[Rfam]
RNA sequence: UUGCUGUGAUGAUGCUUACUUGGUUUCGCUCACUGCUGACUUGCAGUGAAGACAUUUUCCUCUUGGCUGUCUGAGCAG
Numbered sequence: 001u002u003g004c005u006g007u008g009a010u011g012a013u014g015c016u017u018a019c020u021u022g023g024u025u026u027c028g029c030u031c032a033c034u035g036c037u038g039a040c041u042u043g044c045a046g047u048g049a050a051g052a053c054a055u056u057u058u059c060c061u062c063u064u065g066g067c068u069g070u071c072u073g074a075g076c077a078g
Stems, first nucleotide, its partner, number of pairs: 001078004
Notes: The family of this 78-nucleotide sequence from Chrysemys picta is "Small nucleolar RNA SNORD53/SNORD92". The family has 37 seed sequences and 2,250 matches in Rfam 15.1. It is annotated as a C/D-box small nucleolar RNA. Pairs were carried over by alignment from the consensus structure. Its Rfam clan is "SNORD52 clan".